[Rfam]
RNase MRP: a 266-nucleotide sequence from Darwinula stevensoni.
RNA sequence: CCUCGCUCGCGUUAGGGAUGCUACAGAGGAACGUCCGGACCCCAAGUGGUCCCCCAAUCUCUGAGGAAGUUCUCCGGACGAGUGACCAGAGAGUGGUGGUCUGUGAUACUGUCCCAACCACUGGACAAACUCGCAUCACAAAGGCAGGGAAGUCCUUUCGGGACAGAGCCGCGGGGUCCAGGGGGAUUCGUCAUAGCACAGGCAUGCAUCCAAAUGCCCAGUAUCACUGGGUUAAACACUCAAUGGAGACUACUAGCCCGAGUGAG
Dot-bracket structure: .((((((((.((...((((((..((((((.......(((((......))))).....))))))....[[[.[[[[.........((((.....))))(((..........))).(.....((((((....((((........(((......((((.....))))...))))))).))))))...)....................))))))....(((((((...)))))))............]]]]]]]....)).))))))))
The match comes from Rfam's covariance-model search (61 bits). By type it is a ribozyme. RNase MRP is an enzymatically active ribonucleoprotein with two distinct roles in eukaryotes. In mitochondria it plays a direct role in the initiation of mitochondrial DNA replication. In the nucleus it is involved in precursor rRNA processing, where it cleaves the internal transcribed spacer 1 between 18S and 5.8S rRNAs. Despite distinct functions, RNase MRP has been shown to be evolutionarily related to RNase P. Like eukaryotic RNase P, RNase MRP is not catalytically active without associated protein subunits.